RNA: MIR7993 microRNA precursor family
RNA sequence: UUAAGUUAACCAUAUAAAAUAUGUUCUCCUUUAAUUAUAUGCAUCAACCUCAAGUUGAAAACAUCUUAAGUUUUUGCGGCUUAUUAAGGUGAAUGCAUAGACUUAAAGGAGAUGACAUAUAUUUUAUGUGGUUAACUUAACU
Numbered sequence: 001u002u003a004a005g006u007u008a009a010c011c012a013u014a015u016a017a018a019a020u021a022u023g024u025u026c027u028c029c030u031u032u033a034a035u036u037a038u039a040u041g042c043a044u045c046a047a048c049c050u051c052a053a054g055u056u057g058a059a060a061a062c063a064u065c066u067u068a069a070g071u072u073u074u075u076g077c078g079g080c081u082u083a084u085u086a087a088g089g090u091g092a093a094u095g096c097a098u099a100g101a102c103u104u105a106a107a108g109g110a111g112a113u114g115a116c117a118u119a120u121a122u123u124u125u126a127u128g129u130g131g132u133u134a135a136c137u138u139a140a141c142u
Stems, first nucleotide, its partner, number of pairs: 001140023024115002027110008036101001038099007047090004